The record is an 86-nucleotide RNA from Medicago truncatula, which matches "MIR2617 microRNA precursor family" in Rfam. The organism belongs to Medicago, within Eukaryota. Pairs were carried over by alignment from the consensus structure, which was predicted with RNAalifold. Its family is annotated with RISC complex and miRNA-mediated post-transcriptional gene silencing in the Gene Ontology. It scores 89 bits against the family's covariance model.
RNA sequence: AUGUAGUGUAGCAUGCCCGUUUGGUGAAUUACUCUGAUGAAUAUGUUACAAUUAAUUAUUUUUGGGUUGCGGGGUGUUACACCUUG
Numbered sequence: 001a002u003g004u005a006g007u008g009u010a011g012c013a014u015g016c017c018c019g020u021u022u023g024g025u026g027a028a029u030u031a032c033u034c035u036g037a038u039g040a041a042u043a044u045g046u047u048a049c050a051a052u053u054a055a056u057u058a059u060u061u062u063u064g065g066g067u068u069g070c071g072g073g074g075u076g077u078u079a080c081a082c083c084u085u086g
Stems, first nucleotide, its partner, number of pairs: 002086002006082009016073005
Dot-bracket structure: .((..(((((((((.(((((................................................))))))))))))))..))